About this RNA:
Shown here is a 76-nucleotide RNA from Myotis myotis, a member of the family "mir-9229 microRNA precursor family". The source organism's lineage runs through Eukaryota, Eumetazoa, Laurasiatheria, Vespertilionidae and Myotis. Gene Ontology terms of the family: RISC complex and miRNA-mediated post-transcriptional gene silencing.
[Rfam]
RNA sequence: GAGACACUGUUAUGGAGCAGGAUUUGCUUCAGUGGGGCUUUGGUGCUCACUGCGUCUGCCCCUUGAGUGUGUCAUU
Dot-bracket structure: (.(((((..(((.((.(((.(((......(((((((((....)).))))))).)))))).)).)))..))))).).